[Rfam]
RNA sequence: UCUGUCCCUAGAGGAACUGCAGGUGUGGCUAAUAUGUCAUAUGUACCUAAGCAGGUAGCAGAAAGGAGAGAGGCUAUGUCUACACCCAGAGUCGACAAACAUCUGAAUGAUCAGUAGCCUCACAUC
Dot-bracket structure: .((((.(((....(....(.(..((((((......))))))..).).)....)))..))))......(.((((((((.....((..(((.((......))..)))..))....)))))))).)...

Small nucleolar RNA SNORA17: a 126-nucleotide RNA sequence from Rattus norvegicus. The source organism's lineage runs through Eukaryota, Craniata, Amniota, Myomorpha and Rattus. For this family Rfam cites "Mapping to nucleotide resolution of pseudouridine residues in large subunit ribosomal RNAs from representative eukaryotes, prokaryotes, archaebacteria, mitochondria and chloroplasts" (Ofengand and Bakin, J Mol Biol, 1997). The family's consensus secondary structure was predicted with RNAalifold. snoRNA ACA 17 belongs to the H/ACA family of snoRNAs and is predicted to guide pseudouridylation of the 28S rRNA at positions U4659 and U4598. It shares the same host gene together with ACA43. NB This family has a high threshold value to exclude a large number of closely related sequences that do not appear to have conserved H and ACA boxes, and may be pseudogenes. Rfam links the family to the GO terms RNA processing and nucleolus.